[Rfam]
tRNA: a 99-nucleotide RNA sequence from Paecilomyces variotii. Rfam classes the family as a transfer RNA. The organism belongs to Paecilomyces variotii, within Eukaryota.
RNA sequence: GCUCGAAUAGCUCAGUUGGUAGAGCGCUUGACUAGUAUCAACUAGUUUCGCGACUAAUCGCUUAUCAAGAGGUCUGGAGUUCGAAUCUCCAUUUGAGCA
Number, nucleotide and partner (000 for none) at each position: 001g098002c097003u096004c095005g094006a093007a092008u000009a000010g025011c024012u023013c022014a000015g000016u000017u000018g000019g000020u000021a000022g013023a012024g011025c010026g000027c069028u068029u067030g066031a065032c000033u000034a000035g000036u000037a000038u000039c000040a000041a000042c000043u000044a000045g000046u000047u000048u000049c000050g000051c000052g000053a000054c000055u000056a000057a000058u000059c000060g000061c000062u000063u000064a000065u031066c030067a029068a028069g027070a000071g000072g000073u000074c000075u091076g090077g089078a088079g087080u000081u000082c000083g000084a000085a000086u000087c079088u078089c077090c076091a075092u007093u006094u005095g004096a003097g002098c001099a000